[Rfam]
Nucleotides: 100
Stems, first nucleotide, its partner, number of pairs: 001100007010092002018088002021085002026082003033045005058066003
Number, partner (000 for none) and nucleotide at each position: 001100g002099u003098a004097g005096c006095g007094g008000u009000a010092u011091u012000g013000u014000a015000a016000g017000u018088c019087c020000c021085g022084g023000a024000u025000c026082g027081g028080c029000u030000g031000g032000g033045u034044g035043u036042u037041c038000g039000u040000a041037g042036a043035a044034c045033a046000c047000c048000c049000c050000a051000c052000u053000c054000c055000g056000c057000c058066c059065c060064g061000c062000a063000g064060u065059g066058g067000g068000c069000g070000g071000u072000g073000g074000u075000c076000a077000u078000c079000g080028g081027c082026c083000c084022c085021c086000a087019g088018g089000c090000a091011g092010a093000g094007c095006c096005g097004c098003u099002a100001u